[Rfam]
RNA sequence: GUCAACCACCCCGCCCUGAAGGACGGGGCUUGAAACCAAGCUUCGCUCGUCAGGGAUCGGUUGACCAGGGAAAUAUUUUCAACUAUUGGCAAAGUUAUUUAAAGGAGAAUAUUAGCAGUUGUAUAGAGCGCUAAACACCGACGACGGGAUGCUUCCUCAGUCCCGUCCGCUUGAAUCCCGGGUUGCAGACAACCGAGGGGCCGGACGAAACGGAUCCGGGAAUAGAGCCGCUAUGCAACAGUCCCGAGGGGAGAGUUCU
Numbered sequence: 001g002u003c004a005a006c007c008a009c010c011c012c013g014c015c016c017u018g019a020a021g022g023a024c025g026g027g028g029c030u031u032g033a034a035a036c037c038a039a040g041c042u043u044c045g046c047u048c049g050u051c052a053g054g055g056a057u058c059g060g061u062u063g064a065c066c067a068g069g070g071a072a073a074u075a076u077u078u079u080c081a082a083c084u085a086u087u088g089g090c091a092a093a094g095u096u097a098u099u100u101a102a103a104g105g106a107g108a109a110u111a112u113u114a115g116c117a118g119u120u121g122u123a124u125a126g127a128g129c130g131c132u133a134a135a136c137a138c139c140g141a142c143g144a145c146g147g148g149a150u151g152c153u154u155c156c157u158c159a160g161u162c163c164c165g166u167c168c169g170c171u172u173g174a175a176u177c178c179c180g181g182g183u184u185g186c187a188g189a190c191a192a193c194c195g196a197g198g199g200g201c202c203g204g205a206c207g208a209a210a211c212g213g214a215u216c217c218g219g220g221a222a223u224a225g226a227g228c229c230g231c232u233a234u235g236c237a238a239c240a241g242u243c244c245c246g247a248g249g250g251g252a253g254a255g256u257u258c259u
Base pairs, nucleotide, nucleotide: 001065002064003063004062005061006060007059010028011027012025013024015022016021029040030039031038032037068245069244070243071242073112074111075110076109077108078107079106080105118239119238120237121236122235123234124233125232126231128229138173143167144166145165146164147163148162149161150160153253154252155251156250157249158248176221177220178219179218180217181216182215183214184213190207193204194203195202
The record is a 259-nucleotide sequence from Desulfobacter latus, which matches "HNH endonuclease-associated RNA and ORF (HEARO) RNA" in Rfam. On this family, see Weinberg et al., Nature 2009: "Exceptional structured noncoding RNAs revealed by bacterial metagenome analysis". A search with the family's covariance model found it, with a score of 100 bits.